[Rfam]
RNA: uup RNA
RNA sequence: GGAAACUGAACUCUGUACAAUCCAUACCGGUGAAACAUUGUGCAGAGU
Numbered sequence: 001g002g003a004a005a006c007u008g009a010a011c012u013c014u015g016u017a018c019a020a021u022c023c024a025u026a027c028c029g030g031u032g033a034a035a036c037a038u039u040g041u042g043c044a045g046a047g048u
Base pairs, nucleotide, nucleotide: 011047012046013045014044015043017041018040019039